[Rfam]
RNA sequence: AAUUAUAAGGAAUUAACCUUAAUUAUAAUU
Numbered sequence: 001a002a003u004u005a006u007a008a009g010g011a012a013u014u015a016a017c018c019u020u021a022a023u024u025a026u027a028a029u030u
Stems, first nucleotide, its partner, number of pairs: 001030006007020004
Rfam assigns this 30-nucleotide RNA from Salix brachista to the family "S4-Flavobacteria ribosomal protein leader".
It is annotated as a cis-regulatory leader.